[Rfam]
Shown here is a 45-nucleotide sequence from Eubacterium aggregans, a member of the family "PreQ1 (pre queuosine) riboswitch aptamer". The pairing is the family consensus, mapped onto this sequence. Rfam 15.1 lists 873 matches to the family in 692 species. NCBI's taxonomy places the organism under Bacteria, Bacillati, Clostridia, Eubacteriales, Eubacterium.
RNA sequence: UUGUGAGAGGUUCGUAACCAUCCCUCUAUAAAAAACUAGGAAAAA
Numbered sequence: 001u002u003g004u005g006a007g008a009g010g011u012u013c014g015u016a017a018c019c020a021u022c023c024c025u026c027u028a029u030a031a032a033a034a035a036c037u038a039g040g041a042a043a044a045a
Base pairs, nucleotide, nucleotide: 006027007026008025009024010023015038016037